[Rfam]
RNA: Small nucleolar RNA SNORD82
RNA sequence: UAUUUAUAUGAUGAUAAACAAGGGACUUAAUACUGAAACGUAUGAUGUCACCUAAUUGUUUUUCCUGAUACAU
Numbered sequence: 001u002a003u004u005u006a007u008a009u010g011a012u013g014a015u016a017a018a019c020a021a022g023g024g025a026c027u028u029a030a031u032a033c034u035g036a037a038a039c040g041u042a043u044g045a046u047g048u049c050a051c052c053u054a055a056u057u058g059u060u061u062u063u064c065c066u067g068a069u070a071c072a073u
Base pairs, nucleotide, nucleotide: 002073003072005070006069
Dot-bracket structure: .((.((..............................................................)).))